[Rfam]
The family of this 142-nucleotide RNA sequence from Streptomyces adustus is "Streptomyces-metH RNA".
NCBI's taxonomy places the organism under Bacteria, Bacillati, Actinomycetota, Actinomycetes, Streptomyces.
RNA sequence: CUCGUCCGCGUCGUGGACGCCCCGACCAUAAGCCCCCGGUCCCGGAUACCCUGACGGGGUGCGCCCGCCCAGGGAACCCUCCCGGUACUCCCGGGGCGGCGCAAAGCCGACAGCCGUCGCACCAAAAGGGAGCCCCUUCAUG
Numbered sequence: 001c002u003c004g005u006c007c008g009c010g011u012c013g014u015g016g017a018c019g020c021c022c023c024g025a026c027c028a029u030a031a032g033c034c035c036c037c038g039g040u041c042c043c044g045g046a047u048a049c050c051c052u053g054a055c056g057g058g059g060u061g062c063g064c065c066c067g068c069c070c071a072g073g074g075a076a077c078c079c080u081c082c083c084g085g086u087a088c089u090c091c092c093g094g095g096g097c098g099g100c101g102c103a104a105a106g107c108c109g110a111c112a113g114c115c116g117u118c119g120c121a122c123c124a125a126a127a128g129g130g131a132g133c134c135c136c137u138u139c140a141u142g
Stems, first nucleotide, its partner, number of pairs: 060103004066098004106120002109118003
Dot-bracket structure: ...........................................................((((..((((.........................)))).))))..((.(((....)))))......................

The match comes from Rfam's covariance-model search (88 bits).
By type it is a small RNA.